The family of this 151-nucleotide RNA from Tetracentron sinense is "U12 minor spliceosomal RNA". It scores 96 bits against the family's covariance model. Clan: U2 clan. The source organism's lineage runs through Eukaryota, Embryophyta, Magnoliopsida, Trochodendraceae and Tetracentron.
RNA sequence: CUGCCUUAAACUAAUGAGUAAGGAAAACAAUGCGAUCGGUGAGAGCCGUUCGCAGCGCUCGUAACAUUUGCGCAUGAAUUUAUGGAGGGGUUAUAGGCUGGUCGAGCGUUGACGCUGCUUACUUUGCAGAACUCGCUCGUGCGGGCCUCCC
Numbered sequence: 001c002u003g004c005c006u007u008a009a010a011c012u013a014a015u016g017a018g019u020a021a022g023g024a025a026a027a028c029a030a031u032g033c034g035a036u037c038g039g040u041g042a043g044a045g046c047c048g049u050u051c052g053c054a055g056c057g058c059u060c061g062u063a064a065c066a067u068u069u070g071c072g073c074a075u076g077a078a079u080u081u082a083u084g085g086a087g088g089g090g091u092u093a094u095a096g097g098c099u100g101g102u103c104g105a106g107c108g109u110u111g112a113c114g115c116u117g118c119u120u121a122c123u124u125u126g127c128a129g130a131a132c133u134c135g136c137u138c139g140u141g142c143g144g145g146c147c148u149c150c151c
Base pairs, nucleotide, nucleotide: 004023005022006021007020008019032053033052034051035050037048038047039046055073056072057071058070089151090150095148096147097146098145099144101142103139104138106136107135108134115129116128117127118126